[Rfam]
RNA sequence: GGAUGCAAGGUAGUAUUACCUUGCAUCCUAUGUAGCAAGUAGCA
Numbered sequence: 001g002g003a004u005g006c007a008a009g010g011u012a013g014u015a016u017u018a019c020c021u022u023g024c025a026u027c028c029u030a031u032g033u034a035g036c037a038a039g040u041a042g043c044a
Stems, first nucleotide, its partner, number of pairs: 001028010
A member of the RNA family "ssNA-helicase RNA", 44 nucleotides long. It is annotated as a small RNA. The family's consensus secondary structure is taken from published work.